[Rfam]
skipping-rope RNA: an 88-nucleotide RNA sequence from Drymodes brunneopygia.

RNA sequence: AGAAGGAGAAACAGGAACCUUGGUGUUCCCUGUGCUCUGGAGGGUGCAGAGACCCCAGAGAUGCAGGGUCAGACCCCUGCCCCCUUCC
Number, nucleotide and partner (000 for none) at each position: 001a000002g087003a086004a085005g084006g083007a000008g081009a000010a000011a033012c032013a031014g030015g029016a000017a000018c000019c000020u000021u000022g000023g074024u073025g000026u071027u000028c000029c015030c014031u013032g012033u011034g000035c058036u052037c051038u050039g000040g000041a000042g000043g000044g000045u000046g000047c000048a000049g000050a038051g037052a036053c000054c000055c000056c000057a000058g035059a000060g000061a000062u000063g080064c079065a078066g077067g076068g000069u000070c000071a026072g000073a024074c023075c000076c067077c066078u065079g064080c063081c008082c000083c006084c005085u004086u003087c002088c000

It is annotated as a small RNA. A search with the family's covariance model found it, with a score of 38 bits.